Annotation:
This 105-nucleotide sequence from Bacillus sp. B-jedd belongs to the Rfam family "S10-Clostridia ribosomal protein leader".
RNA sequence: UGACUGCGAUGAUGUGAGAGGUUGCUGACACACCCGGCCGCUUUGCCAUGGCGAGUGUGGCAGGAGAUUUUCACUGAGAAUGUCUAUUUUGAAAAUAGGCGAAAA
Numbered sequence: 001u002g003a004c005u006g007c008g009a010u011g012a013u014g015u016g017a018g019a020g021g022u023u024g025c026u027g028a029c030a031c032a033c034c035c036g037g038c039c040g041c042u043u044u045g046c047c048a049u050g051g052c053g054a055g056u057g058u059g060g061c062a063g064g065a066g067a068u069u070u071u072c073a074c075u076g077a078g079a080a081u082g083u084c085u086a087u088u089u090u091g092a093a094a095a096u097a098g099g100c101g102a103a104a105a
Stems, first nucleotide, its partner, number of pairs: 014074003018071004025063003029059005081104001083102002088099003
A search with the family's covariance model found it, with a score of 40 bits. The organism belongs to Bacillus, within Bacteria. By type it is a cis-regulatory leader. A reference for the family is Eckert and Weinberg (2020), "Discovery of 20 novel ribosomal leader candidates in bacteria and archaea", BMC Microbiol.